[Rfam]
A member of the RNA family "Small nucleolar RNA Z278" from Oryza sativa, 115 nucleotides long.
The match comes from Rfam's covariance-model search (39 bits).
snoZ278 is a C/D box small nucleolar RNA. Its methylation guide targets have not been reported.
Its family is annotated with RNA processing and nucleolus in the Gene Ontology.
It is annotated as a C/D-box small nucleolar RNA.
RNA sequence: GCGAAUGAUGAUAUUGUCUGCAAAAUGGAUGCCCUGUGGACUCAAGUCCCUGUUUCAGGGAGAACCUACUUGACAAAUCAGUGGAUAACAUGACAUCAACAGAUAAAUCUGAUGC
Numbered sequence: 001g002c003g004a005a006u007g008a009u010g011a012u013a014u015u016g017u018c019u020g021c022a023a024a025a026u027g028g029a030u031g032c033c034c035u036g037u038g039g040a041c042u043c044a045a046g047u048c049c050c051u052g053u054u055u056c057a058g059g060g061a062g063a064a065c066c067u068a069c070u071u072g073a074c075a076a077a078u079c080a081g082u083g084g085a086u087a088a089c090a091u092g093a094c095a096u097c098a099a100c101a102g103a104u105a106a107a108u109c110u111g112a113u114g115c
Base pairs, nucleotide, nucleotide: 001115002114003113048060049059050058051057052056